[Rfam]
RNA sequence: AGUUCCAGUUAGCUUUGCAGGGUGGGCAGUCAGCUUAUGGACAUCAGAGCCGCUGUGCAAACCCAUGCAAAACUGACUGUGGCU
Numbered sequence: 001a002g003u004u005c006c007a008g009u010u011a012g013c014u015u016u017g018c019a020g021g022g023u024g025g026g027c028a029g030u031c032a033g034c035u036u037a038u039g040g041a042c043a044u045c046a047g048a049g050c051c052g053c054u055g056u057g058c059a060a061a062c063c064c065a066u067g068c069a070a071a072a073c074u075g076a077c078u079g080u081g082g083c084u
Stems, first nucleotide, its partner, number of pairs: 003082002006079007014071006020064002023060001026058003032054003
Shown here is an 84-nucleotide RNA sequence from Scleropages formosus, a member of the family "mir-19 microRNA precursor family". Its Rfam clan is "mir-19 clan". Rfam links the family to the GO terms miRNA-mediated post-transcriptional gene silencing and RISC complex. NCBI's taxonomy places the organism under Eukaryota, Eumetazoa, Chordata, Actinopterygii, Scleropages. The match comes from Rfam's covariance-model search (57 bits). The literature on the family includes a 2001 paper in Science by Lagos-Quintana et al., "Identification of novel genes coding for small expressed RNAs".